Annotation: JUMPstart RNA: a 39-nucleotide RNA from Izhakiella capsodis. Taxonomically the source falls in Izhakiella (Bacteria, Pseudomonadati, Gammaproteobacteria, Enterobacterales).
[Rfam]
Nucleotides: 039
Base pairs, nucleotide, nucleotide: 008026009025010024011023012022
Number, partner (000 for none) and nucleotide at each position: 001000c002000g003000g004000u005000c006000u007000a008026u009025u010024g011023g012022u013000g014000g015000c016000u017000g018000u019000u020000g021000a022012g023011c024010c025009a026008a027000g028000g029000g030000c031000g032000g033000u034000a035000g036000c037000g038000u039000g